A member of the RNA family "Plant signal recognition particle RNA" from Acer saccharum, 324 nucleotides long.
Rfam classes the family as a non-coding RNA gene.
For this family Rfam cites "Towards the structure of the mammalian signal recognition particle" (Wild et al., Curr Opin Struct Biol, 2002).
It scores 229 bits against the family's covariance model.
[Rfam]
RNA sequence: GCCGGGCUCAGUAACGAGAGCUUGUGACCAAGUGGGGGCUUUGAAGUGAUGGAACAUUGAUUCAGCCCAUUGGGUUGGUUUCAGCCCAUUGGGUUGGGUUCCAAGUGGCUGUUCACUGGCUUGCCCGUUCCAAACCAAGAGCUGGGCCGUGAGUCUCCUUCGAAGGUAGGAGGCCCACGGUUCCUUGAGUGGAGGGCACCGCGUGAGGCUGGCUUCACAGAGCAGCGACCACCUCCCGCUCUUGGUAGUGGAAGGAUUACAGACCGGUGCCACUUGGGCCCAAUAUGACCCAAUGGGUUGGAUCCCAAUUGAACCAUCACUUUU
Number, nucleotide and partner (000 for none) at each position: 001g039002c038003c037004g023005g022006g021007c020008u019009c018010a000011g000012u000013a000014a000015c000016g000017a000018g009019a008020g007021c006022u005023u004024g000025u000026g000027a000028c035029c034030a000031a000032g000033u000034g029035g028036g000037g003038g002039c001040u000041u000042u000043g323044a322045a321046g320047u319048g318049a317050u316051g315052g314053a000054a000055c311056a310057u308058u307059g306060a303061u302062u301063c300064a299065g298066c000067c296068c295069a294070u293071u292072g291073g290074g289075u288076u287077g281078g280079u000080u278081u277082c276083a275084g274085c000086c000087c000088a000089u000090u272091g271092g270093g000094u269095u000096g000097g000098g000099u000100u000101c000102c000103a000104a000105g000106u000107g000108g000109c000110u000111g000112u000113u000114c000115a000116c267117u266118g265119g264120c000121u262122u261123g260124c000125c255126c254127g000128u253129u252130c251131c250132a249133a000134a246135c245136c244137a243138a242139g241140a240141g239142c238143u000144g183145g182146g181147c180148c179149g178150u177151g176152a000153g174154u173155c172156u171157c170158c169159u168160u000161c166162g000163a000164a000165g000166g161167u000168a159169g158170g157171a156172g155173g154174c153175c000176c151177a150178c149179g148180g147181u146182u145183c144184c189185u000186u000187g000188a000189g184190u000191g236192g235193a234194g233195g232196g000197c000198a000199c000200c000201g000202c227203g226204u225205g000206a000207g000208g000209c220210u219211g218212g000213c000214u000215u000216c000217a000218c211219a210220g209221a000222g000223c000224a000225g204226c203227g202228a000229c000230c000231a000232c195233c194234u193235c192236c191237c000238g142239c141240u140241c139242u138243u137244g136245g135246u134247a000248g000249u132250g131251g130252a129253a128254g126255g125256a000257u000258u000259a000260c123261a122262g121263a000264c119265c118266g117267g116268u000269g094270c092271c091272a090273c000274u084275u083276g082277g081278g080279c000280c078281c077282a000283a000284u000285a000286u000287g076288a075289c074290c073291c072292a071293a070294u069295g068296g067297g000298u065299u064300g063301g062302a061303u060304c000305c000306c059307a058308a057309u000310u056311g055312a000313a000314c052315c051316a050317u049318c048319a047320c046321u045322u044323u043324u000
Source information: The family's consensus secondary structure is taken from published work.